[Rfam]
RNA sequence: CCUUCUUGUGCCUGCUGAACUGGUAUCAGUGUGCUGAUUGAGUGCUGGCUCAGUUCAGCAGGAACAGGAG
Numbered sequence: 001c002c003u004u005c006u007u008g009u010g011c012c013u014g015c016u017g018a019a020c021u022g023g024u025a026u027c028a029g030u031g032u033g034c035u036g037a038u039u040g041a042g043u044g045c046u047g048g049c050u051c052a053g054u055u056c057a058g059c060a061g062g063a064a065c066a067g068g069a070g
Stems, first nucleotide, its partner, number of pairs: 003070004008065002011062003015058009026048005

This 70-nucleotide RNA from Anabarilius grahami belongs to the Rfam family "mir-24 microRNA precursor family". The family has 63 seed sequences and 1,372 matches in Rfam 15.1. NCBI's taxonomy places the organism under Eukaryota, Deuterostomia, Actinopterygii, Cyprinoidei, Anabarilius. Rfam's curators write: This family represents the microRNA (miRNA) mir-24 family. miRNAs are transcribed as ~70nt precursors (modelled here) and subsequently processed by the Dicer enzyme to give a ~22nt product. In this case the mature sequence comes from the 3' arm of the precursor. The match comes from Rfam's covariance-model search (70 bits). The base pairs follow the family's consensus structure, which was predicted with RNAalifold. A reference for the family is Ambros (2001), "microRNAs: tiny regulators with great potential", Cell.